The family of this 88-nucleotide sequence from Aureimonas fodinaquatilis is "Glycine riboswitch aptamer". Taxonomically the source falls in Aureimonas (Bacteria, Pseudomonadota, Hyphomicrobiales, Aurantimonadaceae). A search with the family's covariance model found it, with a score of 69 bits.
RNA sequence: GAACCGCUUGCGGGAGAGACCGGCUUUUGCCGGCGCCGAAGGAGCAACCGCCCCGGAAUCUCUCAGGCAAAAGGACCGCGCGGUAUUU
Numbered sequence: 001g002a003a004c005c006g007c008u009u010g011c012g013g014g015a016g017a018g019a020c021c022g023g024c025u026u027u028u029g030c031c032g033g034c035g036c037c038g039a040a041g042g043a044g045c046a047a048c049c050g051c052c053c054c055g056g057a058a059u060c061u062c063u064c065a066g067g068c069a070a071a072a073g074g075a076c077c078g079c080g081c082g083g084u085a086u087u088u
Stems, first nucleotide, its partner, number of pairs: 007082001009080005020033004035068003038064002042062003048056002